[Rfam]
RNA sequence: UUGGGUCUGAGCUAAUGAUUCGUUUUAUCCGCCUCGCAGGACUACUACUUCUCGCAUUAAAUAUGCGCGGUAGUGUUGCGGGCGGAAUUAAUAAAUGAUUCGGGCCUGAAAACAGAAAAACCCGCGCCGCAGCGCGGGUUUUUUU
Numbered sequence: 001u002u003g004g005g006u007c008u009g010a011g012c013u014a015a016u017g018a019u020u021c022g023u024u025u026u027a028u029c030c031g032c033c034u035c036g037c038a039g040g041a042c043u044a045c046u047a048c049u050u051c052u053c054g055c056a057u058u059a060a061a062u063a064u065g066c067g068c069g070g071u072a073g074u075g076u077u078g079c080g081g082g083c084g085g086a087a088u089u090a091a092u093a094a095a096u097g098a099u100u101c102g103g104g105c106c107u108g109a110a111a112a113c114a115g116a117a118a119a120a121c122c123c124g125c126g127c128c129g130c131a132g133c134g135c136g137g138g139u140u141u142u143u144u145u
Stems, first nucleotide, its partner, number of pairs: 004106001006104005013097002016094001018092001025085002028082005045073005053067004117142011
A member of the RNA family "Leucine operon leader" from Tatumella ptyseos, 145 nucleotides long. For this family Rfam cites "Attenuation in amino acid biosynthetic operons" (Kolter and Yanofsky, Annu Rev Genet, 1982). Rfam describes the family as follows. At least 6 amino acid operons are known to be regulated by attenuation. In each a leader sequence of 150-200 bp is found upstream of the first gene in the operon. NCBI's taxonomy places the organism under Bacteria, Pseudomonadota, Gammaproteobacteria, Enterobacterales, Tatumella ptyseos. Rfam classes the family as a cis-regulatory leader. Rfam links the family to the GO term leucine biosynthetic process.